Shown here is a 121-nucleotide RNA from Falsochrobactrum shanghaiense, a member of the family "Alphaproteobacterial ar14".
For this family Rfam cites "A conserved alpha-proteobacterial small RNA contributes to osmoadaptation and symbiotic efficiency of rhizobia on legume roots" (Robledo et al., Environ Microbiol, 2017).
Smr14C2 was renamed NfeR1 (Nodule Formation Efficiency RNA) highly expressed in salt stress and during the symbiotic interaction on legume roots.
Rfam classes the family as a small RNA.

Nucleotides: 121
Base pairs, nucleotide, nucleotide: 007038008037009036011034012033013032014031015030016029017028040072041071042070043069044068045067046066047065048064049063081116082115083114084113085112086111087110088109089108090107091106
Number, partner (000 for none) and nucleotide at each position: 001000a002000g003000a004000g005000g006000u007038u008037g009036u010000u011034c012033a013032g014031u015030u016029u017028u018000a019000c020000u021000c022000c023000u024000c025000c026000c027000a028017g029016a030015a031014a032013c033012u034011g035000g036009a037008c038007a039000u040072g041071a042070a043069g044068c045067g046066c047065g048064a049063u050000a051000c052000u053000c054000c055000u056000c057000c058000u059000c060000c061000c062000u063049a064048u065047c066046g067045c068044g069043c070042u071041u072040u073000c074000c075000a076000g077000a078000u079000c080000a081116g082115c083114c084113c085112g086111c087110u088109g089108c090107a091106c092000a093000c094000u095000u096000c097000c098000u099000c100000c101000u102000c103000c104000c105000g106091g107090u108089g109088c110087a111086g112085c113084g114083g115082g116081c117000g118000u119000u120000c121000u